[Rfam]
The family of this 118-nucleotide sequence from Pseudomonas cavernae is "Pseudomon-1/ErsA RNA". The match comes from Rfam's covariance-model search (124 bits). NCBI's taxonomy places the organism under Bacteria, Gammaproteobacteria, Pseudomonadales, Pseudomonadaceae, Pseudomonas. Rfam classes the family as a small RNA. Rfam describes the family as follows. Functions to regulate the AlgC enzyme. Based on this information, the new name ErsA for the RNA was adopted. Negatively regulates major porin oprD expression responsible for uptake of carbapenem antibiotics, by base pairing with oprD 5'UTR (leading to increased bacterial resistance to meropenem).Positively regulates amrZ mRNA and contributes to biofilm formation and motility.
RNA sequence: GUGCUCCUAAUGUUGUGUUAAGUGUUGGCAGAUCUCUGGACCCCGCCCUAGCGGUUCAGAUCUUAAACCCCGAGCCUCCCCCUCCCCAUACGAAGCUCGGGGUUUUUUUUGCCUGCGA
Dot-bracket structure: ..................................((((((((..........))))))))....(((((((((((.((.............)).)))))))).)))............
Numbered sequence: 001g002u003g004c005u006c007c008u009a010a011u012g013u014u015g016u017g018u019u020a021a022g023u024g025u026u027g028g029c030a031g032a033u034c035u036c037u038g039g040a041c042c043c044c045g046c047c048c049u050a051g052c053g054g055u056u057c058a059g060a061u062c063u064u065a066a067a068c069c070c071c072g073a074g075c076c077u078c079c080c081c082c083u084c085c086c087c088a089u090a091c092g093a094a095g096c097u098c099g100g101g102g103u104u105u106u107u108u109u110u111g112c113c114u115g116c117g118a
Stems, first nucleotide, its partner, number of pairs: 035060008065106003068102008077093002